[Rfam]
RNA sequence: AUACUACCUGGCAGGGGAGAUACCACGAUCAUGAAGGUGGUUUUCUCAAGGCAAGGCUUAUCCAUUGCACUCCAGAUGUGCUGACCCCUGCAAUUUCCCCAAAUGUGGGAAACACUAUUGCAAUAUUUGUGGUAGUGGGGUACUGUGUUUGCACUCUCCCUGG
Number, nucleotide and partner (000 for none) at each position: 001a000002u000003a000004c000005u000006a000007c000008c000009u000010g000011g121012c120013a119014g118015g047016g046017g045018a044019g043020a042021u000022a041023c040024c039025a038026c037027g000028a000029u000030c000031a000032u000033g000034a000035a000036g000037g026038u025039g024040g023041u022042u020043u019044u018045c017046u016047c015048a089049a000050g087051g086052c000053a000054a000055g082056g081057c080058u000059u078060a077061u076062c075063c000064a000065u000066u000067g000068c000069a000070c000071u000072c000073c000074a000075g062076a061077u060078g059079u000080g057081c056082u055083g000084a000085c000086c051087c050088c000089u048090g000091c000092a000093a000094u112095u110096u109097c000098c108099c107100c000101a000102a000103a000104u000105g000106u000107g099108g098109g096110a095111a000112a094113c000114a000115c000116u000117a000118u014119u013120g012121c011122a000123a000124u000125a000126u000127u000128u000129g000130u000131g000132g000133u000134a000135g000136u162137g161138g160139g159140g158141u000142a157143c000144u000145g154146u153147g152148u000149u000150u000151g000152c147153a146154c145155u000156c000157u142158c140159c139160c138161u137162g136163g000

Rfam assigns this 163-nucleotide sequence from Carlito syrichta to the family "U1 spliceosomal RNA". From the family's description: U1 is a small nuclear RNA (snRNA) component of the spliceosome (involved in pre-mRNA splicing). Its 5' end forms complementary base pairs with the 5' splice junction, thus defining the 5' donor site of an intron. There are significant differences in sequence and secondary structure between metazoan and yeast U1 snRNAs, the latter being much longer (568 nucleotides as compared to 164 nucleotides in human). Nevertheless, secondary structure predictions suggest that all U1 snRNAs share a 'common core' consisting of helices I, II, the proximal region of III, and IV. This family does not contain the larger yeast sequences. The match comes from Rfam's covariance-model search (116 bits).